[Rfam]
RNA: Glycine riboswitch aptamer
Organism: Variovorax sp. PAMC 28711
Nucleotides: 107
Stems, first nucleotide, its partner, number of pairs: 007101002011097003020036004038086003041082002045080003051073005
Number, partner (000 for none) and nucleotide at each position: 001000u002000u003000a004000u005000c006000g007101c008100c009000g010000a011097c012096u013095g014000g015000a016000g017000a018000g019000c020036c021035g022034u023033c024000a025000c026000c027000c028000a029000g030000c031000g032000u033023g034022a035021c036020g037000c038086a039085c040084c041082g042081a043000a044000g045080g046079a047078g048000c049000a050000a051073a052072u053071c054070c055069g056000c057000c058000g059000c060000a061000u062000c063000g064000c065000g066000u067000g068000a069055c070054g071053g072052g073051u074000g075000a076000a077000u078047c079046u080045c081042u082041c083000a084040g085039g086038u087000a088000c089000c090000a091000a092000g093000g094000a095013c096012a097011g098000c099000g100008g101007g102000a103000g104000c105000g106000g107000c